[Rfam]
RNA sequence: UUCGUCGACGACGACGAACUCAUCAGCUACAUCAUCGCUGGUCUCGAAGAGGAUUACAAACCUGUGAUCCAAUGUAUCGUUGGGCGUCCAGAUCAAGUCACCGUCGGCGAGGCCUUUGCUCAGCUUCUAUGCUUUGAGC
Dot-bracket structure: ....((((................................................................................(.(((.........))).)..........................))))..
RNA: Small nucleolar RNA Z247